[Rfam]
RNA: small nucleolar RNA snoR137
RNA sequence: GUUGCUUCAUAAUGGUGAAGUCUCUGUUUGAAUUAGUGAGAGAUUUCAAGUUUCCCGAAGCAUAGAGAAAUUAGUCAGUUUUAAACAGUGCGGUGUUUUUCUUGUGUCACCGUGCUACCUGUCUACUGCUACACUU
Numbered sequence: 001g002u003u004g005c006u007u008c009a010u011a012a013u014g015g016u017g018a019a020g021u022c023u024c025u026g027u028u029u030g031a032a033u034u035a036g037u038g039a040g041a042g043a044u045u046u047c048a049a050g051u052u053u054c055c056c057g058a059a060g061c062a063u064a065g066a067g068a069a070a071u072u073a074g075u076c077a078g079u080u081u082u083a084a085a086c087a088g089u090g091c092g093g094u095g096u097u098u099u100u101c102u103u104g105u106g107u108c109a110c111c112g113u114g115c116u117a118c119c120u121g122u123c124u125a126c127u128g129c130u131a132c133a134c135u136u
Stems, first nucleotide, its partner, number of pairs: 003062006016048010074130001076128004087116003091112005